The record is an 87-nucleotide RNA sequence from Mus musculus, which matches "mir-7 microRNA precursor family" in Rfam. On this family, see Lagos-Quintana et al., Science 2001: "Identification of novel genes coding for small expressed RNAs". From the family's description: This family represents the microRNA (miRNA) precursor mir-7. Pairs were carried over by alignment from the consensus structure, which was predicted with PFOLD. Rfam's curators put it in the seed alignment. Rfam 15.1 lists 2,589 matches to the family in 797 species.
RNA sequence: UGAGCCAGUGCUAUGUGGAAGACUUGUGAUUUUGUUGUUCUGAUAUGAUAUGACAACAAGUCACAGCCAGCCUCAUAGCGUGGACUC
Numbered sequence: 001u002g003a004g005c006c007a008g009u010g011c012u013a014u015g016u017g018g019a020a021g022a023c024u025u026g027u028g029a030u031u032u033u034g035u036u037g038u039u040c041u042g043a044u045a046u047g048a049u050a051u052g053a054c055a056a057c058a059a060g061u062c063a064c065a066g067c068c069a070g071c072c073u074c075a076u077a078g079c080g081u082g083g084a085c086u087c
Base pairs, nucleotide, nucleotide: 002086005083006082008081009080011078012077013076014075015074017072018071021068023066024065026064027063028062029061030060031059032058034057035056036055037054038053039052